[Rfam]
Nucleotides: 133
Base pairs, nucleotide, nucleotide: 003060004059005058006057007056018044019043020042023038024037025036026035027034072126073125074124075123076122087112088111089110090109091108092107094105096103
Number, partner (000 for none) and nucleotide at each position: 001000g002000a003060g004059c005058a006057g007056g008000u009000c010000u011000u012000c013000c014000a015000g016000c017000a018044u019043g020042g021000u022000g023038g024037g025036g026035c027034u028000u029000g030000u031000a032000g033000u034027a035026g036025u037024c038023c039000u040000a041000g042020u043019c044018a045000u046000u047000c048000c049000u050000g051000u052000a053000g054000a055000c056007u057006c058005u059004g060003c061000u062000a063000g064000a065000u066000c067000a068000g069000a070000c071000u072126u073125g074124g075123g076122a077000c078000g079000g080000u081000u082000u083000g084000a085000g086000g087112c088111c089110u090109c091108u092107g093000c094105c095000u096103g097000c098000u099000c100000u101000u102000c103096c104000u105094g106000g107092c108091a109090g110089a111088g112087g113000u114000u115000a116000u117000a118000g119000a120000a121000c122076u123075c124074u125073c126072a127000c128000a129000c130000a131000c132000c133000u